[Rfam]
RNA sequence: GCCGGUCAUGGUGGCACUCACAUGUAGUCCUAGCUACUCAGGAGGCUGAGGCUGGAGGAUUGCUUGAGCCCAGGAGUUCUGGGCUGCUGUGUGCUAUGCCGAUUUGGUGUCCACACUAAGUUCGGCAUCAAUAUGGUGACCCUCUGGGAACGGGGGACCACCAGAUUGCCUAAGGAGGGGUGAACCGACCCAGGUCAGAAAUGGAGCAGGUCAAAACUCCCAUGCCAAUCAGUAGUGGGAUUGCACCUGUGAAUAGCCGUUGUACUCCAGCCUGGGCAAGAUAGUGAGGGCCCUGU
Numbered sequence: 001g002c003c004g005g006u007c008a009u010g011g012u013g014g015c016a017c018u019c020a021c022a023u024g025u026a027g028u029c030c031u032a033g034c035u036a037c038u039c040a041g042g043a044g045g046c047u048g049a050g051g052c053u054g055g056a057g058g059a060u061u062g063c064u065u066g067a068g069c070c071c072a073g074g075a076g077u078u079c080u081g082g083g084c085u086g087c088u089g090u091g092u093g094c095u096a097u098g099c100c101g102a103u104u105u106g107g108u109g110u111c112c113a114c115a116c117u118a119a120g121u122u123c124g125g126c127a128u129c130a131a132u133a134u135g136g137u138g139a140c141c142c143u144c145u146g147g148g149a150a151c152g153g154g155g156g157a158c159c160a161c162c163a164g165a166u167u168g169c170c171u172a173a174g175g176a177g178g179g180g181u182g183a184a185c186c187g188a189c190c191c192a193g194g195u196c197a198g199a200a201a202u203g204g205a206g207c208a209g210g211u212c213a214a215a216a217c218u219c220c221c222a223u224g225c226c227a228a229u230c231a232g233u234a235g236u237g238g239g240a241u242u243g244c245a246c247c248u249g250u251g252a253a254u255a256g257c258c259g260u261u262g263u264a265c266u267c268c269a270g271c272c273u274g275g276g277c278a279a280g281a282u283a284g285u286g287a288g289g290g291c292c293c294u295g296u
Stems, first nucleotide, its partner, number of pairs: 001046003004023001010017001028043003051296002054293002060287005068277007079270005085264003089260003093257005099251001104249001106247005111239002114237005120230001122228001124226005129168004134163005141156006169175002177220005187212004195204003

The record is a 296-nucleotide sequence from Monodelphis domestica, which matches "Metazoan signal recognition particle RNA" in Rfam. The source organism's lineage runs through Eukaryota, Vertebrata, Teleostomi, Metatheria and Monodelphis. A reference for the family is Rosenblad et al. (2009), "Kinship in the SRP RNA family", RNA Biol. It is annotated as a non-coding RNA gene. The family is grouped with related families in Rfam's "SRP clan".